[Rfam]
RNA sequence: CUACCUUUUGUAGUAUUUGUUUAAAAAUCUGUUAAUAAUCUGUUAAUAUCUGAUGCGUCUCCUAUCUGGGGACCAUAUAUGAAAUUGUAUUUUGGGACGGCGAGAUGGGAUAGGGGCUUGCUCUCUCCUCUGCAUGCAUCGACCUAGUAAUGCAGUAUCUCCAGGAAGGGUGCACCUCUC
Numbered sequence: 001c002u003a004c005c006u007u008u009u010g011u012a013g014u015a016u017u018u019g020u021u022u023a024a025a026a027a028u029c030u031g032u033u034a035a036u037a038a039u040c041u042g043u044u045a046a047u048a049u050c051u052g053a054u055g056c057g058u059c060u061c062c063u064a065u066c067u068g069g070g071g072a073c074c075a076u077a078u079a080u081g082a083a084a085u086u087g088u089a090u091u092u093u094g095g096g097a098c099g100g101c102g103a104g105a106u107g108g109g110a111u112a113g114g115g116g117c118u119u120g121c122u123c124u125c126u127c128c129u130c131u132g133c134a135u136g137c138a139u140c141g142a143c144c145u146a147g148u149a150a151u152g153c154a155g156u157a158u159c160u161c162c163a164g165g166a167a168g169g170g171u172g173c174a175c176c177u178c179u180c
Stems, first nucleotide, its partner, number of pairs: 007026003012021003038054003042050001057073006103131003107127002113124004136173005143165003147161001

The record is a 180-nucleotide RNA sequence from Salmo trutta, which matches "U2 spliceosomal RNA" in Rfam. Gene Ontology terms of the family: U2 snRNP, pre-mRNA branch point binding and mRNA branch site recognition. It scores 64 bits against the family's covariance model. Rfam describes the family as follows. U2 is a small nuclear RNA (snRNA) component of the spliceosome (involved in pre-mRNA splicing). Complementary binding between U2 snRNA (in an area lying towards the 5' end but 3' to hairpin I) and the branchpoint sequence (BPS) of the intron results the bulging out of an unpaired adenosine, on the BPS, which initiates a nucleophilic attack at the intronic 5' splice site, thus starting the first of two transesterification reactions that mediate splicing. The family's consensus secondary structure is taken from published work. Rfam classes the family as a spliceosomal small nuclear RNA. The organism belongs to Salmo, within Eukaryota.